[Rfam]
RNA sequence: UUCCAUCUUCGGGGCAGGGUGCAAUUCCCGACCGACGGUAAAAAGUAUACCUAUACUUCAAGUCCGUGACCCGCAUGAGUAAGACCAUGCGGUGGACCUGGUGAGAAUCCGGGACCGACAGUUACAGUCUGGAUGGGAGAAGAUGUCA
Dot-bracket structure: ...(((((((......(((.......))).[[((((((.......................[[))))...((..................))....(((((.......)))))]])).(((.....]]))).......)))))))...
Numbered sequence: 001u002u003c004c005a006u007c008u009u010c011g012g013g014g015c016a017g018g019g020u021g022c023a024a025u026u027c028c029c030g031a032c033c034g035a036c037g038g039u040a041a042a043a044a045g046u047a048u049a050c051c052u053a054u055a056c057u058u059c060a061a062g063u064c065c066g067u068g069a070c071c072c073g074c075a076u077g078a079g080u081a082a083g084a085c086c087a088u089g090c091g092g093u094g095g096a097c098c099u100g101g102u103g104a105g106a107a108u109c110c111g112g113g114a115c116c117g118a119c120a121g122u123u124a125c126a127g128u129c130u131g132g133a134u135g136g137g138a139g140a141a142g143a144u145g146u147c148a
Stems, first nucleotide, its partner, number of pairs: 004145007017029003031128002033117002035067004062115002071092002097113005119131003

Rfam assigns this 148-nucleotide sequence from Halobacillus karajensis to the family "FMN riboswitch aptamer (RFN element)". The source organism's lineage runs through Bacteria, Bacilli, Caryophanales, Bacillaceae and Halobacillus. The family's consensus secondary structure is taken from published work.